Overview:
The family of this 208-nucleotide sequence from Paenibacillus sp. NEAU-GSW1 is "c-di-AMP riboswitch aptamer (ydaO/yuaA leader)". Its family is annotated with regulation of gene expression and cyclic-di-AMP binding in the Gene Ontology. NCBI's taxonomy places the organism under Bacteria, Bacillati, Bacillota, Paenibacillaceae, Paenibacillus.
RNA sequence: UUCCAGUUGACGCUUAAUUUCCGAAAUGGAAAGCGGGGGAACCAGGCAUCUGAACUGCAGCCGAUAAAUGGCCGAAUGCAGGGAUGAGGCUUUGAAUUCUCAAUGGGGUGAAUUUGGCGGCGUUUGCCAUGAGCAUUCGACCGUCGAUAGGGCAGCUCUCUUGCCCGAAUCCGACAGCUAACCUCGUAAGCGUGUAUAGAGAGCGAUC
Numbered sequence: 001u002u003c004c005a006g007u008u009g010a011c012g013c014u015u016a017a018u019u020u021c022c023g024a025a026a027u028g029g030a031a032a033g034c035g036g037g038g039g040a041a042c043c044a045g046g047c048a049u050c051u052g053a054a055c056u057g058c059a060g061c062c063g064a065u066a067a068a069u070g071g072c073c074g075a076a077u078g079c080a081g082g083g084a085u086g087a088g089g090c091u092u093u094g095a096a097u098u099c100u101c102a103a104u105g106g107g108g109u110g111a112a113u114u115u116g117g118c119g120g121c122g123u124u125u126g127c128c129a130u131g132a133g134c135a136u137u138c139g140a141c142c143g144u145c146g147a148u149a150g151g152g153c154a155g156c157u158c159u160c161u162u163g164c165c166c167g168a169a170u171c172c173g174a175c176a177g178c179u180a181a182c183c184u185c186g187u188a189a190g191c192g193u194g195u196a197u198a199g200a201g202a203g204c205g206a207u208c
Stems, first nucleotide, its partner, number of pairs: 011192004018032005033187006043105002106172003114147007150166004